[Rfam]
RNA sequence: GCCGGGUGCUACCAGAACCGGCACGGGCGCAGAGGCAACUCUUCGCCCGUGCACUUUUGUUAAGGGUUGAGAAAUAAUG
Number, nucleotide and partner (000 for none) at each position: 001g000002c000003c020004g019005g018006g000007u000008g000009c000010u000011a000012c000013c000014a000015g000016a000017a000018c005019c004020g003021g052022c051023a050024c049025g048026g047027g046028c045029g044030c000031a042032g041033a040034g039035g000036c000037a000038a000039c034040u033041c032042u031043u000044c029045g028046c027047c026048c025049g024050u023051g022052c021053a000054c000055u000056u000057u000058u000059g000060u000061u000062a000063a000064g000065g000066g000067u000068u000069g000070a000071g000072a000073a000074a000075u000076a000077a000078u000079g000
Source information:
This 79-nucleotide RNA from Enterobacillus tribolii belongs to the Rfam family "tpke11". The literature on the family includes a 2001 paper in Curr Biol by Rivas et al., "Computational identification of noncoding RNAs in E. coli by comparative genomics". In Yersinia located in ICR upstream dnaJ (chaperone)gene. The source organism's lineage runs through Bacteria, Pseudomonadati, Enterobacterales, Hafniaceae and Enterobacillus. The base pairs follow the family's consensus structure, which was predicted with WAR. It is annotated as a small RNA.